[Rfam]
RNA sequence: GUGGUUGCAAAUUUCGCCAGUUAGCCUAUCUUGUCGGGGCGGGCUUAGCGGCCCGAUAUGGCGAUAAAGAGUGUCGUGAAAUAGACGUUCGGACCCGGGGGCGGUACCCGGCGGCUCCACCAAAUCUCUCCGUUGUCGGGGGAAGCGAGGGGCCGAAACAGGAUCGACGUGCGUUCAAAGACGAAGACUUUUGCCCGGCCUGAAUGAGCCGUAAAACCGUUCAUAACUCUAAAUGCCAACGACAACGAGGCAUUCGCAAUCGCAGCGUAACCCGGUCCUAACGGACUAAGUUACACUGGCCGAAAGCGCGGUAGGGACUGCACCGGGCAACAGAAGCAGAAACC
Numbered sequence: 001g002u003g004g005u006u007g008c009a010a011a012u013u014u015c016g017c018c019a020g021u022u023a024g025c026c027u028a029u030c031u032u033g034u035c036g037g038g039g040c041g042g043g044c045u046u047a048g049c050g051g052c053c054c055g056a057u058a059u060g061g062c063g064a065u066a067a068a069g070a071g072u073g074u075c076g077u078g079a080a081a082u083a084g085a086c087g088u089u090c091g092g093a094c095c096c097g098g099g100g101g102c103g104g105u106a107c108c109c110g111g112c113g114g115c116u117c118c119a120c121c122a123a124a125u126c127u128c129u130c131c132g133u134u135g136u137c138g139g140g141g142g143a144a145g146c147g148a149g150g151g152g153c154c155g156a157a158a159c160a161g162g163a164u165c166g167a168c169g170u171g172c173g174u175u176c177a178a179a180g181a182c183g184a185a186g187a188c189u190u191u192u193g194c195c196c197g198g199c200c201u202g203a204a205u206g207a208g209c210c211g212u213a214a215a216a217c218c219g220u221u222c223a224u225a226a227c228u229c230u231a232a233a234u235g236c237c238a239a240c241g242a243c244a245a246c247g248a249g250g251c252a253u254u255c256g257c258a259a260u261c262g263c264a265g266c267g268u269a270a271c272c273c274g275g276u277c278c279u280a281a282c283g284g285a286c287u288a289a290g291u292u293a294c295a296c297u298g299g300c301c302g303a304a305a306g307c308g309c310g311g312u313a314g315g316g317a318c319u320g321c322a323c324c325g326g327g328c329a330a331c332a333g334a335a336g337c338a339g340a341a342a343c344c
Base pairs, nucleotide, nucleotide: 040055041054042053043052044051045050060195061194062193063192064191071188072187074184075183076182077181086173087172088171090169091168095111096110097109098108099107112155113154114153115152116151117150118149196211197210198209199208201223202222203221309325310324311323312322